Rfam assigns this 84-nucleotide RNA from Papaver nudicaule to the family "Small nucleolar RNA snoR8a". The family's RNA type in Rfam is C/D-box small nucleolar RNA. Rfam 15.1 lists 956 matches to the family in 245 species. The base pairs follow the family's consensus structure, which was predicted with WAR. Its family is annotated with RNA processing and nucleolus in the Gene Ontology.
[Rfam]
RNA sequence: UUUAGUGCUAUGCUUAUAAAAAUUCCUCGUACUGAAUUGCCAAUGGCAUGACAGACUCUAUCUACCCAUAGAAUAUGAGCACUA
Numbered sequence: 001u002u003u004a005g006u007g008c009u010a011u012g013c014u015u016a017u018a019a020a021a022a023u024u025c026c027u028c029g030u031a032c033u034g035a036a037u038u039g040c041c042a043a044u045g046g047c048a049u050g051a052c053a054g055a056c057u058c059u060a061u062c063u064a065c066c067c068a069u070a071g072a073a074u075a076u077g078a079g080c081a082c083u084a
Stems, first nucleotide, its partner, number of pairs: 003084002006081002
Dot-bracket structure: ..((.((........................................................................)).))